[Rfam]
RNA sequence: UUAUUACUUAUUCUCCGAGUCUAUAAUCCUAAGGCAAGAGCUAUGGAUUAUAGGCCGAUAGGGUAGUGCUGGAAACGGUGCUGCCUCCCGCCUGGAAAGGAGAAUAGGAAGGCUGCUA
Numbered sequence: 001u002u003a004u005u006a007c008u009u010a011u012u013c014u015c016c017g018a019g020u021c022u023a024u025a026a027u028c029c030u031a032a033g034g035c036a037a038g039a040g041c042u043a044u045g046g047a048u049u050a051u052a053g054g055c056c057g058a059u060a061g062g063g064u065a066g067u068g069c070u071g072g073a074a075a076c077g078g079u080g081c082u083g084c085c086u087c088c089c090g091c092c093u094g095g096a097a098a099g100g101a102g103a104a105u106a107g108g109a110a111g112g113c114u115g116c117u118a
Stems, first nucleotide, its partner, number of pairs: 004111001011104006019055011033042003061086011087095002
Background
The family of this 118-nucleotide RNA from Thermoanaerobacter brockii is "Molybdenum/Tungsten riboswitch aptamer (Moco RNA motif)".